Overview: Rfam assigns this 135-nucleotide sequence from Cebus imitator to the family "Small nucleolar RNA SNORA48". A search with the family's covariance model found it, with a score of 95 bits. Gene Ontology terms of the family: RNA processing and nucleolus. Rfam classes the family as an H/ACA-box small nucleolar RNA. Rfam's curators write: The snoRNA ACA 48 has been identified to guide pseudouridylation of the residue U3797 in the 28S rRNA subunit. For this family Rfam cites "Mapping to nucleotide resolution of pseudouridine residues in large subunit ribosomal RNAs from representative eukaryotes, prokaryotes, archaebacteria, mitochondria and chloroplasts" (Ofengand and Bakin, J Mol Biol, 1997). Its Rfam clan is "SNORA48 clan".
RNA sequence: UGUCCUUGUCUUGGGUAGAGUGACGUCUGGUUGGUGCUGCCCAUCUCAUAAAAACAAGAAAAAAAAUCAAUGCCUUAUUUAUUCCAGCUUGGCUUUUGGUCAUGCCUAUUCCUGGUUUAUGCCUUGGACACAUGG
Numbered sequence: 001u002g003u004c005c006u007u008g009u010c011u012u013g014g015g016u017a018g019a020g021u022g023a024c025g026u027c028u029g030g031u032u033g034g035u036g037c038u039g040c041c042c043a044u045c046u047c048a049u050a051a052a053a054a055c056a057a058g059a060a061a062a063a064a065a066a067u068c069a070a071u072g073c074c075u076u077a078u079u080u081a082u083u084c085c086a087g088c089u090u091g092g093c094u095u096u097u098g099g100u101c102a103u104g105c106c107u108a109u110u111c112c113u114g115g116u117u118u119a120u121g122c123c124u125u126g127g128a129c130a131c132a133u134g135g
Stems, first nucleotide, its partner, number of pairs: 001062001003060001005058004011053002018047003022041001024039002027036001076130001078128004091123003097119003100115003104111001